Notes
The family of this 79-nucleotide RNA from Bradyrhizobium sp. LMTR 3 is "Glycine riboswitch aptamer".
[Rfam]
RNA sequence: CAUCUGGAAAGAGACGCCGGGCAACAUGCGCCCAGGGCGUCCGCCGACGGGAUAAUACUCUCAGGCACAGCGACAGAUG
Numbered sequence: 001c002a003u004c005u006g007g008a009a010a011g012a013g014a015c016g017c018c019g020g021g022c023a024a025c026a027u028g029c030g031c032c033c034a035g036g037g038c039g040u041c042c043g044c045c046g047a048c049g050g051g052a053u054a055a056u057a058c059u060c061u062c063a064g065g066c067a068c069a070g071c072g073a074c075a076g077a078u079g
Base pairs, nucleotide, nucleotide: 001079002078003077004076005075006074013041014040015039016038017037018036043066044065045064046062047061050060051059